Overview
Shown here is a 60-nucleotide RNA sequence, a member of the family "Glutamine-II riboswitch aptamer". The base pairs follow the family's consensus structure, which is taken from published work. Its family is annotated with glutamine binding in the Gene Ontology.
RNA sequence: GUCCGUUCAUCCCUUUAGUACGGGACGCAUGACACCUAAGCCAUGGAACGGGGGCUUGGG
Dot-bracket structure: ...[[[[[.((((........)))).........((((((((...]]]]].)).))))))